[Rfam]
RNA: M-box riboswitch aptamer (ykoK leader)
RNA sequence: GCAGCACCUCGUUAGGCGAGGCUCCUGCACGAACACAGGCCACUGAUCUGACGACGUCGAGAGACGCCCAAGAUCAGGACAGAUCUCCCCGGCUUAAGGGGUGAUCCCAAGUGGCUUCCCUCCGGGAUACGUCGUGCAGUGUCAAAGCCCUUACGUGGAGGUGUCAU
Numbered sequence: 001g002c003a004g005c006a007c008c009u010c011g012u013u014a015g016g017c018g019a020g021g022c023u024c025c026u027g028c029a030c031g032a033a034c035a036c037a038g039g040c041c042a043c044u045g046a047u048c049u050g051a052c053g054a055c056g057u058c059g060a061g062a063g064a065c066g067c068c069c070a071a072g073a074u075c076a077g078g079a080c081a082g083a084u085c086u087c088c089c090c091g092g093c094u095u096a097a098g099g100g101g102u103g104a105u106c107c108c109a110a111g112u113g114g115c116u117u118c119c120c121u122c123c124g125g126g127a128u129a130c131g132u133c134g135u136g137c138a139g140u141g142u143c144a145a146a147g148c149c150c151u152u153a154c155g156u157g158g159a160g161g162u163g164u165c166a167u
Stems, first nucleotide, its partner, number of pairs: 005163006011154002013097001015149003020143003025139008039115005045075005055066004082106004088100003117127003